RNA sequence: CUCUUAUCGAGAGUGGCGGAGGGACUGGCCCGAUGAAGCCCGGCAACCUCGCCUUGGAGCACGUAUAAGGCUUGCUCUUAAAGGCAAAGGUGCCAAUUCCUGCAGGGCAUUAUUGCUCUGAGAGAUAAGAG
Dot-bracket structure: ((((((((....(.(((...(((.[.[[)))......))))((((.((..(((((.........................)))))...))))))...(]].]((((((......))))))..)))))))))
Numbered sequence: 001c002u003c004u005u006a007u008c009g010a011g012a013g014u015g016g017c018g019g020a021g022g023g024a025c026u027g028g029c030c031c032g033a034u035g036a037a038g039c040c041c042g043g044c045a046a047c048c049u050c051g052c053c054u055u056g057g058a059g060c061a062c063g064u065a066u067a068a069g070g071c072u073u074g075c076u077c078u079u080a081a082a083g084g085c086a087a088a089g090g091u092g093c094c095a096a097u098u099c100c101u102g103c104a105g106g107g108c109a110u111u112a113u114u115g116c117u118c119u120g121a122g123a124g125a126u127a128a129g130a131g
Stems, first nucleotide, its partner, number of pairs: 001131008013041001015040003021031003025102001027100002042094004047090002051085005098123001103120006
Rfam assigns this 131-nucleotide sequence from Thermanaeromonas toyohensis to the family "SAM riboswitch aptamer (S box leader)". The match comes from Rfam's covariance-model search (92 bits). NCBI's taxonomy places the organism under Bacteria, Bacillati, Clostridia, Neomoorellaceae, Thermanaeromonas toyohensis.